[Rfam]
RNA sequence: CGACCUGAGAUUAGGCAAGAUUACCCGCCGAAUUUAAGCAUAUUAAUAAGCGGAGGAAAAGAAAACAACUGUGAUGCCCCUAGUAAUGGCGAAUGAAACGGGCAGAGCCCAGCACCGAACCCCUGGCAGAUCUGUCACGUGGCAUGUGGUGUUUGGGAGAGUCUUCUCGCGAAGGAAUGGCCAGUCCAAGUCCACCUUGACUGGGGCCACGGCCCAUAGAGGGUGAUAGGCCCGUACGGCGGUCGUUUUUUCGCGCUGACUUUUCCCUAGAGUCGAGUUGCUUGGGAGUGCAGCUCAAAGUGCGUGGUAAACUCCACGUAAGGCUAAAUAUGACCCCGAGACCGAUAGCAAACAAGUACCGUGAGGGAAAGUUGAAAAGAACUUUGAAGAGAGAGUUCAAGAGUACGUGAAACUGUGGAGUGGCAAA
Numbered sequence: 001c002g003a004c005c006u007g008a009g010a011u012u013a014g015g016c017a018a019g020a021u022u023a024c025c026c027g028c029c030g031a032a033u034u035u036a037a038g039c040a041u042a043u044u045a046a047u048a049a050g051c052g053g054a055g056g057a058a059a060a061g062a063a064a065a066c067a068a069c070u071g072u073g074a075u076g077c078c079c080c081u082a083g084u085a086a087u088g089g090c091g092a093a094u095g096a097a098a099c100g101g102g103c104a105g106a107g108c109c110c111a112g113c114a115c116c117g118a119a120c121c122c123c124u125g126g127c128a129g130a131u132c133u134g135u136c137a138c139g140u141g142g143c144a145u146g147u148g149g150u151g152u153u154u155g156g157g158a159g160a161g162u163c164u165u166c167u168c169g170c171g172a173a174g175g176a177a178u179g180g181c182c183a184g185u186c187c188a189a190g191u192c193c194a195c196c197u198u199g200a201c202u203g204g205g206g207c208c209a210c211g212g213c214c215c216a217u218a219g220a221g222g223g224u225g226a227u228a229g230g231c232c233c234g235u236a237c238g239g240c241g242g243u244c245g246u247u248u249u250u251u252c253g254c255g256c257u258g259a260c261u262u263u264u265c266c267c268u269a270g271a272g273u274c275g276a277g278u279u280g281c282u283u284g285g286g287a288g289u290g291c292a293g294c295u296c297a298a299a300g301u302g303c304g305u306g307g308u309a310a311a312c313u314c315c316a317c318g319u320a321a322g323g324c325u326a327a328a329u330a331u332g333a334c335c336c337c338g339a340g341a342c343c344g345a346u347a348g349c350a351a352a353c354a355a356g357u358a359c360c361g362u363g364a365g366g367g368a369a370a371g372u373u374g375a376a377a378a379g380a381a382c383u384u385u386g387a388a389g390a391g392a393g394a395g396u397u398c399a400a401g402a403g404u405a406c407g408u409g410a411a412a413c414u415g416u417g418g419a420g421u422g423g424c425a426a427a
Stems, first nucleotide, its partner, number of pairs: 024055001025053004035042002065072002076103004086094002106325004113151005119145001122142002126138001156266002158263004165259002171250004180244001182242001184240003190207001192206002195204002215219001222232002275296007302319005359366002382393004
RNA: Eukaryotic large subunit ribosomal RNA, nucleotides 1 to 427
Organism: Tigriopus californicus